[Rfam]
RNA sequence: UCCGACCCGUUGGGAGACGCUGGCGACGAGCGUUGCGGACCACUGCCCGCAGCGCCCCCGCCAGGGCCGAAGGAGCAACCGCCCCGGAAACUCUCAGGCGAAAGGACCGGCGGGGUCGA
Number, nucleotide and partner (000 for none) at each position: 001u000002c000003c000004g000005a000006c114007c113008c112009g111010u110011u109012g108013g107014g000015a000016g000017a000018c000019g000020c064021u063022g062023g061024c060025g059026a000027c000028g000029a000030g000031c000032g000033u000034u000035g000036c000037g000038g000039a000040c000041c000042a000043c000044u000045g000046c000047c000048c000049g000050c000051a000052g000053c000054g000055c000056c000057c000058c000059c025060g024061c023062c022063a021064g020065g000066g099067c098068c097069g095070a094071a000072g000073g093074a092075g091076c000077a000078a000079c087080c086081g000082c000083c000084c000085c000086g080087g079088a000089a000090a000091c075092u074093c073094u070095c069096a000097g068098g067099c066100g000101a000102a000103a000104g000105g000106a000107c013108c012109g011110g010111c009112g008113g007114g006115g000116u000117c000118g000119a000

Rfam assigns this 119-nucleotide RNA from Albimonas donghaensis to the family "Glycine riboswitch aptamer". The match comes from Rfam's covariance-model search (47 bits).